[Rfam]
RNA sequence: CAAGAAAAAUCCAAACCUGCUGUAAAGCAGGGACGGAAAGCCACGGGUUUCUUUUGUAAGAAGCAGCCGGUUAUCAAUA
Numbered sequence: 001c002a003a004g005a006a007a008a009a010u011c012c013a014a015a016c017c018u019g020c021u022g023u024a025a026a027g028c029a030g031g032g033a034c035g036g037a038a039a040g041c042c043a044c045g046g047g048u049u050u051c052u053u054u055u056g057u058a059a060g061a062a063g064c065a066g067c068c069g070g071u072u073a074u075c076a077a078u079a
Stems, first nucleotide, its partner, number of pairs: 011036002016031006039072004045068002047064007
A member of the RNA family "c-di-GMP-I-UAU riboswitch aptamer", 79 nucleotides long.
For this family Rfam cites "Bioinformatic analysis of riboswitch structures uncovers variant classes with altered ligand specificity" (Weinberg et al., Proc Natl Acad Sci U S A, 2017).
Rfam's curators put it in the seed alignment.
Its Rfam clan is "c-di-GMP_I riboswitch clan".
The base pairs follow the family's consensus structure, which is taken from published work.